Rfam assigns this 405-nucleotide RNA from Isoptericola sp. CG 20/1183 to the family "Bacterial RNase P class A".
RNA sequence: CGAGUCGGUCGGACGGUCGCGUCGUCGCUGCUCCUCGGAGCGGUGGCGCCGAGGAACGUCCGGGCUCCGAAGGGCAAGGUGGUGGCUAACAGCCACCCGGGGUGACCCGCGGGACAGUGCCACAGAAAACAGACCGCCUGCACGCCUCGGCGAGCAGGUCAGGGUGAAACGGUGGUGUAAGAGACCACCAGCACGGCCGGUGACGGUCGUGGCUCGGUAAACCCCACCUGGAGCAAGGUCAGACAGACUGUGAUCGAGGGCGGCCCGCCCGAUUCUCUGCGGAGAAGCGCAGUCGGGUAGACCGCUGGAGGCCUGUGGCAACGCAGGUCCUAGAUGGAUGACCGUCGCCCGAGCCGGGGCAACCCGGCGCGGGAACAGAACCCGGCGUACAGACCGGCUCGUCCG
Numbered sequence: 001c002g003a004g005u006c007g008g009u010c011g012g013a014c015g016g017u018c019g020c021g022u023c024g025u026c027g028c029u030g031c032u033c034c035u036c037g038g039a040g041c042g043g044u045g046g047c048g049c050c051g052a053g054g055a056a057c058g059u060c061c062g063g064g065c066u067c068c069g070a071a072g073g074g075c076a077a078g079g080u081g082g083u084g085g086c087u088a089a090c091a092g093c094c095a096c097c098c099g100g101g102g103u104g105a106c107c108c109g110c111g112g113g114a115c116a117g118u119g120c121c122a123c124a125g126a127a128a129a130c131a132g133a134c135c136g137c138c139u140g141c142a143c144g145c146c147u148c149g150g151c152g153a154g155c156a157g158g159u160c161a162g163g164g165u166g167a168a169a170c171g172g173u174g175g176u177g178u179a180a181g182a183g184a185c186c187a188c189c190a191g192c193a194c195g196g197c198c199g200g201u202g203a204c205g206g207u208c209g210u211g212g213c214u215c216g217g218u219a220a221a222c223c224c225c226a227c228c229u230g231g232a233g234c235a236a237g238g239u240c241a242g243a244c245a246g247a248c249u250g251u252g253a254u255c256g257a258g259g260g261c262g263g264c265c266c267g268c269c270c271g272a273u274u275c276u277c278u279g280c281g282g283a284g285a286a287g288c289g290c291a292g293u294c295g296g297g298u299a300g301a302c303c304g305c306u307g308g309a310g311g312c313c314u315g316u317g318g319c320a321a322c323g324c325a326g327g328u329c330c331u332a333g334a335u336g337g338a339u340g341a342c343c344g345u346c347g348c349c350c351g352a353g354c355c356g357g358g359g360c361a362a363c364c365c366g367g368c369g370c371g372g373g374a375a376c377a378g379a380a381c382c383c384g385g386c387g388u389a390c391a392g393a394c395c396g397g398c399u400c401g402u403c404c405g
Stems, first nucleotide, its partner, number of pairs: 001401010011390001012346007020051002023048010056388003060385005065233004074280002077229005082096005097111001098109004112224002117222002119218003134163002136159006143152002171189006191213001192211008237303004273286005310329008
The organism belongs to Isoptericola, within Bacteria. For this family Rfam cites "Identification and characterization of small RNAs in Yersinia pestis" (Beauregard et al., RNA Biol, 2013). The family's RNA type in Rfam is ribozyme.